[Rfam]
RNA sequence: UGAAAUUGCUCCUGUAAGUCGCUCUUGAUAAGAGUGUCUGCUAAAUGACUAAAA
Numbered sequence: 001u002g003a004a005a006u007u008g009c010u011c012c013u014g015u016a017a018g019u020c021g022c023u024c025u026u027g028a029u030a031a032g033a034g035u036g037u038c039u040g041c042u043a044a045a046u047g048a049c050u051a052a053a054a
Stems, first nucleotide, its partner, number of pairs: 013043001014041003020036006

Background:
UnaL2 LINE 3' element: a 54-nucleotide RNA sequence from Salmo salar. The family's consensus secondary structure is taken from published work. It is annotated as a cis-regulatory element. A search with the family's covariance model found it, with a score of 56 bits. The family has 30 seed sequences and 493,311 matches in Rfam 15.1.